[Rfam]
RNA sequence: UUCUAAGUAUAGGGGGUCACAGCAGGAGUGUUAAAUGUUGCGGUCCCGAUUCAACCCAUGUACUGAUGGGUUGUGAAUCCUGCU
Number, nucleotide and partner (000 for none) at each position: 001u000002u000003c000004u000005a000006a000007g000008u000009a000010u000011a000012g000013g047014g046015g045016g044017u043018c042019a000020c000021a084022g083023c082024a081025g080026g079027a078028g041029u040030g039031u000032u000033a000034a000035a000036u000037g000038u000039u030040g029041c028042g018043g017044u016045c015046c014047c013048g000049a000050u000051u000052c073053a072054a071055c070056c069057c068058a067059u000060g000061u000062a000063c000064u000065g000066a000067u058068g057069g056070g055071u054072u053073g052074u000075g000076a000077a000078u027079c026080c025081u024082g023083c022084u021

Rfam assigns this 84-nucleotide RNA from Zootermopsis nevadensis to the family "Mammalian CPEB3 ribozyme". The family's consensus secondary structure is taken from published work. Taxonomically the source falls in Zootermopsis (Eukaryota, Mandibulata, Hexapoda, Termitoidae).